Rfam assigns this 144-nucleotide RNA from Anaerobacillus alkaliphilus to the family "c-di-AMP riboswitch aptamer (ydaO/yuaA leader)".
RNA sequence: ACCUUUUAUUCGCUGAAUCUUUAUGAGCGGGGGAACCACUUUAGAUAGCAAUUUCUAUCUUGGGGUGAGUCUUACUUUUGUAAGAGGGGAUACUCUCAAUCCCUAAUCCGACAGCUAACCUCGUAAGCGUUAACUAGUAUCUUU
Numbered sequence: 001a002c003c004u005u006u007u008a009u010u011c012g013c014u015g016a017a018u019c020u021u022u023a024u025g026a027g028c029g030g031g032g033g034a035a036c037c038a039c040u041u042u043a044g045a046u047a048g049c050a051a052u053u054u055c056u057a058u059c060u061u062g063g064g065g066u067g068a069g070u071c072u073u074a075c076u077u078u079u080g081u082a083a084g085a086g087g088g089g090a091u092a093c094u095c096u097c098a099a100u101c102c103c104u105a106a107u108c109c110g111a112c113a114g115c116u117a118a119c120c121u122c123g124u125a126a127g128c129g130u131u132a133a134c135u136a137g138u139a140u141c142u143u144u
Stems, first nucleotide, its partner, number of pairs: 011129004018026002027124006037062002063109003071084004087103004
This family represents a conserved RNA structure found upstream of the ydaO and yuaA genes in Bacillus subtilis and related genes in other bacteria. NCBI's taxonomy places the organism under Bacteria, Bacillati, Caryophanales, Bacillaceae, Anaerobacillus. The match comes from Rfam's covariance-model search (90 bits).